Rfam assigns this 154-nucleotide RNA sequence from Phocicoccus pinnipedialis to the family "Ribosomal protein L10 leader". The match comes from Rfam's covariance-model search (77 bits). Rfam classes the family as a cis-regulatory leader. From the family's description: This family is a putative r-protein leader autoregulatory structure found in B. subtilis and other low-GC Gram-positive bacteria. It is located in the 5' untranslated regions of mRNAs encoding ribosomal proteins L10 and L12 (rplJ-rplL). A Rho-independent transcription terminator structure that is probably involved in regulation is included at the 3' end.
[Rfam]
RNA sequence: UGAAUUUUAAUAAACUUACCUAAGACAGUAGGAGUAUUUAUUAUUUGAAUACUUAAAAGACCAUCCUGCCGAGGCAAUGAAAAAAUGACUUGUAUAUACUAUAUAUAUUCAAGCACUUUUUGCCGAAGGUAAAAGGUGCUUUUUUUAUUGCACC
Numbered sequence: 001u002g003a004a005u006u007u008u009a010a011u012a013a014a015c016u017u018a019c020c021u022a023a024g025a026c027a028g029u030a031g032g033a034g035u036a037u038u039u040a041u042u043a044u045u046u047g048a049a050u051a052c053u054u055a056a057a058a059g060a061c062c063a064u065c066c067u068g069c070c071g072a073g074g075c076a077a078u079g080a081a082a083a084a085a086u087g088a089c090u091u092g093u094a095u096a097u098a099c100u101a102u103a104u105a106u107a108u109u110c111a112a113g114c115a116c117u118u119u120u121u122g123c124c125g126a127a128g129g130u131a132a133a134a135g136g137u138g139c140u141u142u143u144u145u146u147a148u149u150g151c152a153c154c
Base pairs, nucleotide, nucleotide: 028069029068030067031066032065033064034052035051036050037049038048039047040046113139114138115137116136117135118134119133120132121131122130